[Rfam]
RNA sequence: ACGCCCGCUGGAGAUGGCAUUCCUCCAAACAACCGCCGAUCCCCCGGCUGAUGAUGCCUACGAAUUC
Dot-bracket structure: .........[[[[..((((((.]]]]........((((......))))....)))))).........

Description: A member of the RNA family "Fluoride riboswitch aptamer (crcB RNA motif)" from Paraburkholderia saeva, 67 nucleotides long. The family has 289 seed sequences and 2,293 matches in Rfam 15.1.